Shown here is a 377-nucleotide sequence from Desulfosarcina alkanivorans, a member of the family "Bacterial RNase P class A". The organism belongs to Desulfosarcina, within Bacteria. About the family: Ribonuclease P (RNase P) is a ubiquitous endoribonuclease, found in archaea, bacteria and eukarya as well as chloroplasts and mitochondria. It scores 315 bits against the family's covariance model. By type it is a ribozyme.
RNA sequence: GGAGCAGACCAGGCGAUCGCUGGCUCCUUUGCAGGGGCUGGAGGAAAGUCCGAACACCACAGGGCAGGGUGCUCCAUAACGUGGAGUCGCGGUGACGCGAAGGCAAGUGCAACAGAAAGCAGACCGCCCUGCCGCUCAGGCAGGGUAAGGGUGAAACGGUGCGGUAAGAGCGCACCAGUUCUCCGGGUGACCGGAGAAGCUGGGUAAACCCCACCCGGUGCAAGACCAAAUAGGGAAGCGUUAGAGGGCGGCCCGUCCAAGCUUCCGGGUAGGUCGCUCGAGGUGCCGGGCAAUCGGCAUCCCAGAUGAAUGAUCGUCGCCCCCGCUCCGGGUAACCGGCCGGGGGAACAGAAUUCGGCUUACGGGCUGCUCCGGCC
Numbered sequence: 001g002g003a004g005c006a007g008a009c010c011a012g013g014c015g016a017u018c019g020c021u022g023g024c025u026c027c028u029u030u031g032c033a034g035g036g037g038c039u040g041g042a043g044g045a046a047a048g049u050c051c052g053a054a055c056a057c058c059a060c061a062g063g064g065c066a067g068g069g070u071g072c073u074c075c076a077u078a079a080c081g082u083g084g085a086g087u088c089g090c091g092g093u094g095a096c097g098c099g100a101a102g103g104c105a106a107g108u109g110c111a112a113c114a115g116a117a118a119g120c121a122g123a124c125c126g127c128c129c130u131g132c133c134g135c136u137c138a139g140g141c142a143g144g145g146u147a148a149g150g151g152u153g154a155a156a157c158g159g160u161g162c163g164g165u166a167a168g169a170g171c172g173c174a175c176c177a178g179u180u181c182u183c184c185g186g187g188u189g190a191c192c193g194g195a196g197a198a199g200c201u202g203g204g205u206a207a208a209c210c211c212c213a214c215c216c217g218g219u220g221c222a223a224g225a226c227c228a229a230a231u232a233g234g235g236a237a238g239c240g241u242u243a244g245a246g247g248g249c250g251g252c253c254c255g256u257c258c259a260a261g262c263u264u265c266c267g268g269g270u271a272g273g274u275c276g277c278u279c280g281a282g283g284u285g286c287c288g289g290g291c292a293a294u295c296g297g298c299a300u301c302c303c304a305g306a307u308g309a310a311u312g313a314u315c316g317u318c319g320c321c322c323c324c325g326c327u328c329c330g331g332g333u334a335a336c337c338g339g340c341c342g343g344g345g346g347a348a349c350a351g352a353a354u355u356c357g358g359c360u361u362a363c364g365g366g367c368u369g370c371u372c373c374g375g376c377c
Stems, first nucleotide, its partner, number of pairs: 001373007009365002012318007020041009046361003050358005055220004062254004067216005072086005087101001088099004102211002107209002109205002124150002126146008158176006178200001179198008224275004234266006246258004282301008